[Rfam]
RNA: mir-205 microRNA precursor family
Organism: Gouania willdenowi
RNA sequence: GCUUUCUAUCCUUCAUUCCACCGGAGUCUGUGUAAACGUGUUAAUCAGAUUUCAGUGGUUUGAAGAAUAGGACGCA
Numbered sequence: 001g002c003u004u005u006c007u008a009u010c011c012u013u014c015a016u017u018c019c020a021c022c023g024g025a026g027u028c029u030g031u032g033u034a035a036a037c038g039u040g041u042u043a044a045u046c047a048g049a050u051u052u053c054a055g056u057g058g059u060u061u062g063a064a065g066a067a068u069a070g071g072a073c074g075c076a
Stems, first nucleotide, its partner, number of pairs: 011065005019057003023053004028048003